Rfam assigns this 74-nucleotide RNA from Myotis brandtii to the family "mir-9229 microRNA precursor family". Pairs were carried over by alignment from the consensus structure, which was predicted with RNAalifold.
RNA sequence: GAGAUACCCCUAUGGAGCAGGACUUGCUUCAGUGGGGCUUUGGUGCUUACUGAGUCUGUCCCUGGAGUGUCACU
Numbered sequence: 001g002a003g004a005u006a007c008c009c010c011u012a013u014g015g016a017g018c019a020g021g022a023c024u025u026g027c028u029u030c031a032g033u034g035g036g037g038c039u040u041u042g043g044u045g046c047u048u049a050c051u052g053a054g055u056c057u058g059u060c061c062c063u064g065g066a067g068u069g070u071c072a073c074u
Base pairs, nucleotide, nucleotide: 001073003071004070005069006068007067009065010064014062015061017059018058019057021056022055023054029053030052031051032050033049034048035047036046037044038043
The family has 7 seed sequences and 27,225 matches in Rfam 15.1.